[Rfam]
RNA sequence: ACUAGUGACACGGGGUGCAAAAGCACUUUAAAAAAGCUUUCGCUGAGAUUACACCCGUCGAACCUGAUCCAGUUAGUACUGGCGAAGGGACUGUCGCAUUGGACCCAU
Dot-bracket structure: .....(((((((((.(((.(((((...........))))).)).......)..)))).....(((...((((......))))...)))...)))))............